[Rfam]
RNA: Listeria sRNA sbrA
Organism: Listeria monocytogenes
Nucleotides: 071
Base pairs, nucleotide, nucleotide: 004036005035006034007033008032009031041064042063043062044061045060046059047058048057049056050055
Number, partner (000 for none) and nucleotide at each position: 001000g002000u003000a004036c005035a006034u007033c008032u009031a010000g011000a012000u013000c014000c015000a016000u017000a018000c019000c020000c021000c022000u023000a024000a025000a026000c027000u028000c029000c030000c031009u032008a033007g034006a035005u036004g037000u038000c039000u040000u041064g042063g043062g044061u045060a046059g047058u048057a049056c050055u051000c052000u053000c054000g055050g056049g057048u058047g059046c060045u061044g062043c063042u064041c065000u066000u067000u068000u069000u070000u071000u